[Rfam]
RNA sequence: UAUCAAGGAACAACGCUAAGUUCGCGACGUCCUGUCGCAACGCCUUGUACCCACAUCCUGUAGG
Numbered sequence: 001u002a003u004c005a006a007g008g009a010a011c012a013a014c015g016c017u018a019a020g021u022u023c024g025c026g027a028c029g030u031c032c033u034g035u036c037g038c039a040a041c042g043c044c045u046u047g048u049a050c051c052c053a054c055a056u057c058c059u060g061u062a063g064g
Base pairs, nucleotide, nucleotide: 010048011047012046013045015043016042024038025037026036027035028034050064051063053061054060
This 64-nucleotide sequence from Alkalihalobacillus alcalophilus belongs to the Rfam family "Bacillaceae-1 RNA". It is annotated as a small RNA.